[Rfam]
RNA sequence: GUACUUACCUGGACGGGGUCAAUGAGCGAUCACUAAGGCUCAUGGCCUAGGCUAGGGGCCCACAUUGCACUUGGUGGGAGCUCUGGCGUACCAUCUGCCCAAGUGGCAGAGUGGACGUCGUAAUUUGUUACAGAGGGGGUACGCGUUCGCGCGGCCCCUG
Numbered sequence: 001g002u003a004c005u006u007a008c009c010u011g012g013a014c015g016g017g018g019u020c021a022a023u024g025a026g027c028g029a030u031c032a033c034u035a036a037g038g039c040u041c042a043u044g045g046c047c048u049a050g051g052c053u054a055g056g057g058g059c060c061c062a063c064a065u066u067g068c069a070c071u072u073g074g075u076g077g078g079a080g081c082u083c084u085g086g087c088g089u090a091c092c093a094u095c096u097g098c099c100c101a102a103g104u105g106g107c108a109g110a111g112u113g114g115a116c117g118u119c120g121u122a123a124u125u126u127g128u129u130a131c132a133g134a135g136g137g138g139g140u141a142c143g144c145g146u147u148c149g150c151g152c153g154g155c156c157c158c159u160g
Base pairs, nucleotide, nucleotide: 012119013118014117015116016048017047018046019045020044021043023042024041025040026039027038049089051087052086053085055082056081059078060077061076062075063074091114092113093112094110095109096108098106099105135159136158137157138156139155142153143152144151145150
RNA: U1 spliceosomal RNA